BsrG: a 253-nucleotide RNA sequence from Paenibacillaceae bacterium GAS479. The family has 6 seed sequences and 614 matches in Rfam 15.1. Rfam describes the family as follows. bsrE, bsrG and bsrH pair through intermolecular interactions with antisense sRNAs. They form type I toxin/antitoxin system that includes an mRNA encoding for a short, toxic peptide (bsrE, bsrG and bsrH) and an antitoxin that is comprised of an antisense RNA. bsrG encodes a 39-amino-acid toxin, and the 180 nucleotide antisense sRNA called SR4 acts as the antitoxin (they overlap by 123 nucleotides). SR4 interaction with the 3'UTR of bsrG RNA promotes bsrG degradation and inhibits its translation. Lineage of the source: Bacteria > Bacillati > Bacilli > Caryophanales > Paenibacillaceae. Its family is annotated with autolysis and toxin activity in the Gene Ontology.
RNA sequence: AGUACAUAGAUGGCUGUUGGGCGGUCAGGCUAAUCUCCCGGAAGGGAGGUGAUGCCAUGGAGGUAUCUCAAACGCUGACGUUGAUGAUUUCUUUCGCAACGUUGAUCGUGCUGAUUCUUUCCUUCAACAAAAAGAAGUAGACCGCCCAAUCCCCAGAUAGGUUGGCGGUCUACUCUACGGCUGUAACCUCUUCAAAGCCCACCGCCCAUAAAGCGGCUAUGUGCCCGGGUCACAGAUGCUGGUAACAUCUGCG
Numbered sequence: 001a002g003u004a005c006a007u008a009g010a011u012g013g014c015u016g017u018u019g020g021g022c023g024g025u026c027a028g029g030c031u032a033a034u035c036u037c038c039c040g041g042a043a044g045g046g047a048g049g050u051g052a053u054g055c056c057a058u059g060g061a062g063g064u065a066u067c068u069c070a071a072a073c074g075c076u077g078a079c080g081u082u083g084a085u086g087a088u089u090u091c092u093u094u095c096g097c098a099a100c101g102u103u104g105a106u107c108g109u110g111c112u113g114a115u116u117c118u119u120u121c122c123u124u125c126a127a128c129a130a131a132a133a134g135a136a137g138u139a140g141a142c143c144g145c146c147c148a149a150u151c152c153c154c155a156g157a158u159a160g161g162u163u164g165g166c167g168g169u170c171u172a173c174u175c176u177a178c179g180g181c182u183g184u185a186a187c188c189u190c191u192u193c194a195a196a197g198c199c200c201a202c203c204g205c206c207c208a209u210a211a212a213g214c215g216g217c218u219a220u221g222u223g224c225c226c227g228g229g230u231c232a233c234a235g236a237u238g239c240u241g242g243u244a245a246c247a248u249c250u251g252c253g
Base pairs, nucleotide, nucleotide: 002224003223004222005221007219008218009217011201012200013199014197015196016150017149018148019147020146021145022144023143024142025141026140031052033050035048036047037046038045039044059121060120061119062118063117065115073086074085097113098112160188161187162186163185164184202216203215204214205213231253233251234250235249236248237247238246240244